Archaeal large subunit ribosomal RNA: a 359-nucleotide part of an RNA from Halomarina oriensis. The source organism's lineage runs through Archaea, Methanobacteriati, Halobacteria, Natronomonadaceae and Halomarina. A reference for the family is Yusupov et al. (2001), "Crystal structure of the ribosome at 5.5 A resolution", Science.

RNA sequence: CGGGUACAACCGACGUUAGGGAAUUCGGCAAAUUAGUCCCGUAAGUUCGCGAUAAGGGAUGCCUGCCUCGGAAAGAGGCAGGUCGCAGAGUCUAGGACGCUCCGACUGUCUAGUAACAACAUAGGUGACUGCAAAUCCGAAAGGACUCGUACAGUCACUGAAUCCUGCCCAGUGCGGGUAUCUGAACACCUAGUACAAUAGGACGAAGGACCCGUCAACGGCGGGGGUAACUAUGACCCUCUUAAGGUAGCGUAGUACCUUGCCGCUUCAGUAGCGGCUUGCAUGAAUGGAUCAACGAGAGCGUCACUGUCCCAACGUUGGGCCCGGUGAACUGUACGUUCCAGUGCGGAGUCUGGAGA
Numbered sequence: 001c002g003g004g005u006a007c008a009a010c011c012g013a014c015g016u017u018a019g020g021g022a023a024u025u026c027g028g029c030a031a032a033u034u035a036g037u038c039c040c041g042u043a044a045g046u047u048c049g050c051g052a053u054a055a056g057g058g059a060u061g062c063c064u065g066c067c068u069c070g071g072a073a074a075g076a077g078g079c080a081g082g083u084c085g086c087a088g089a090g091u092c093u094a095g096g097a098c099g100c101u102c103c104g105a106c107u108g109u110c111u112a113g114u115a116a117c118a119a120c121a122u123a124g125g126u127g128a129c130u131g132c133a134a135a136u137c138c139g140a141a142a143g144g145a146c147u148c149g150u151a152c153a154g155u156c157a158c159u160g161a162a163u164c165c166u167g168c169c170c171a172g173u174g175c176g177g178g179u180a181u182c183u184g185a186a187c188a189c190c191u192a193g194u195a196c197a198a199u200a201g202g203a204c205g206a207a208g209g210a211c212c213c214g215u216c217a218a219c220g221g222c223g224g225g226g227g228u229a230a231c232u233a234u235g236a237c238c239c240u241c242u243u244a245a246g247g248u249a250g251c252g253u254a255g256u257a258c259c260u261u262g263c264c265g266c267u268u269c270a271g272u273a274g275c276g277g278c279u280u281g282c283a284u285g286a287a288u289g290g291a292u293c294a295a296c297g298a299g300a301g302c303g304u305c306a307c308u309g310u311c312c313c314a315a316c317g318u319u320g321g322g323c324c325c326g327g328u329g330a331a332c333u334g335u336a337c338g339u340u341c342c343a344g345u346g347c348g349g350a351g352u353c354u355g356g357a358g359a
Base pairs, nucleotide, nucleotide: 001326002325003324004323010321011320012319013318014317015316016315017314019312020311021310036060037059038058039057040056045050061083062082063081064080065079066078067077068076069075084088096305097304098303099302100301101300102299103297104296107121108120109119124159125158126157127156128155129154130153131152132149136145137144138143162292163291164290165289167222168221169220172219173218174215175214176213177212178211181210182209183208189202190201191200192199223241224240225239226238227237228236242246262278263277264276265275266274267273340357341356342355343354344353